RNA: MIR2629 microRNA precursor family
RNA sequence: UUAUAACAUUUUCCUCGGCAGUUAACUGCAGCCGUAUUUCUAAAAUUUAUGCAGUUAACUGCCGAGGGGCAU
Numbered sequence: 001u002u003a004u005a006a007c008a009u010u011u012u013c014c015u016c017g018g019c020a021g022u023u024a025a026c027u028g029c030a031g032c033c034g035u036a037u038u039u040c041u042a043a044a045a046u047u048u049a050u051g052c053a054g055u056u057a058a059c060u061g062c063c064g065a066g067g068g069g070c071a072u
Stems, first nucleotide, its partner, number of pairs: 012068002015065015